c-di-AMP riboswitch aptamer (ydaO/yuaA leader): a 125-nucleotide RNA from Clostridium manihotivorum.
RNA sequence: UAGAGGAAUUUGCUGAAUCUACAUAAUGUAGAGUGGGGGAUUAAAAACCUGGGGUGAAUCAUAAUGAAGGUAACUCUAUAGCCUAACCCGUCAACUAACCUCGUAAGCAUGAUAGAUGAGGAACU
Numbered sequence: 001u002a003g004a005g006g007a008a009u010u011u012g013c014u015g016a017a018u019c020u021a022c023a024u025a026a027u028g029u030a031g032a033g034u035g036g037g038g039g040a041u042u043a044a045a046a047a048c049c050u051g052g053g054g055u056g057a058a059u060c061a062u063a064a065u066g067a068a069g070g071u072a073a074c075u076c077u078a079u080a081g082c083c084u085a086a087c088c089c090g091u092c093a094a095c096u097a098a099c100c101u102c103g104u105a106a107g108c109a110u111g112a113u114a115g116a117u118g119a120g121g122a123a124c125u
Stems, first nucleotide, its partner, number of pairs: 011109004018032003033104006044050001052089003060066002069083003
The base pairs follow the family's consensus structure. The organism belongs to Clostridium, within Bacteria.